[Rfam]
RNA: MIR7486 microRNA precursor family
Organism: Gossypium lobatum
RNA sequence: CACGUCAACGCGAUGUGCUGACAUGGCAGCAAAUCGCGUCCUAGAGGGAGCGAUUUGCUGCCACGUUAGCACAUCGCACUGAAGUGG
Dot-bracket structure: (((.(((..((((((((((((..((((((((((((((..((....))..))))))))))))))..))))))))))))..))).))).